[Rfam]
RNA sequence: ACUGCAUGCAAACCCAAAGAGCAUUGUUUGUAAUAAAAUGUUCUUGUCAUGUGUGCAGAUAUUAAAUACAUCUUGUCGCCUUUCAAGAGCUGAAGUGUUUUUGAAAGUGAAAUUGAAGAUUAUACAAUA
Numbered sequence: 001a002c003u004g005c006a007u008g009c010a011a012a013c014c015c016a017a018a019g020a021g022c023a024u025u026g027u028u029u030g031u032a033a034u035a036a037a038a039u040g041u042u043c044u045u046g047u048c049a050u051g052u053g054u055g056c057a058g059a060u061a062u063u064a065a066a067u068a069c070a071u072c073u074u075g076u077c078g079c080c081u082u083u084c085a086a087g088a089g090c091u092g093a094a095g096u097g098u099u100u101u102u103g104a105a106a107g108u109g110a111a112a113u114u115g116a117a118g119a120u121u122a123u124a125c126a127a128u129a
Stems, first nucleotide, its partner, number of pairs: 002058008019043007027036002070120005080107011
RNA: Small nucleolar RNA SNORA68
Organism: Python bivittatus